[Rfam]
RNA sequence: GUUCCCGAGGAGCGCUGCAACGGCCGCCGUGGUCACGGCCGCCGCCAGGCUCGGGUUCCCGAUGCAAAACGGCGCUCGUCGAUC
Numbered sequence: 001g002u003u004c005c006c007g008a009g010g011a012g013c014g015c016u017g018c019a020a021c022g023g024c025c026g027c028c029g030u031g032g033u034c035a036c037g038g039c040c041g042c043c044g045c046c047a048g049g050c051u052c053g054g055g056u057u058c059c060c061g062a063u064g065c066a067a068a069a070c071g072g073c074g075c076u077c078g079u080c081g082a083u084c
Base pairs, nucleotide, nucleotide: 004055005054006053007052008051021044022043023042024041026039027038028037029036